The family of this 115-nucleotide RNA sequence from Bacillus benzoevorans is "SAM riboswitch aptamer (S box leader)". A search with the family's covariance model found it, with a score of 100 bits. About the family: The SAM riboswitch is found upstream of a number of genes which code for proteins involved in methionine or cysteine biosynthesis in Gram-positive bacteria. The SAM riboswitch acts at the level of transcription termination control. The predicted structure consists of a complex stem-loop region followed by a single stem loop terminator region.

RNA sequence: UUCUUAUCAAGAGAGGUUGAGGGUAUGGCCCUGUGACACCUCAGCAACCAUCAAUGAAACCGUUCAUUGAUAAGGUGCUAAUUCCAUCAAGUUUCCAUAACUUGGAAGAUAAGAA
Numbered sequence: 001u002u003c004u005u006a007u008c009a010a011g012a013g014a015g016g017u018u019g020a021g022g023g024u025a026u027g028g029c030c031c032u033g034u035g036a037c038a039c040c041u042c043a044g045c046a047a048c049c050a051u052c053a054a055u056g057a058a059a060c061c062g063u064u065c066a067u068u069g070a071u072a073a074g075g076u077g078c079u080a081a082u083u084c085c086a087u088c089a090a091g092u093u094u095c096c097a098u099a100a101c102u103u104g105g106a107a108g109a110u111a112a113g114a115a
Stems, first nucleotide, its partner, number of pairs: 001115008013042005021031003025087004043079004048075002050071007083107001088104006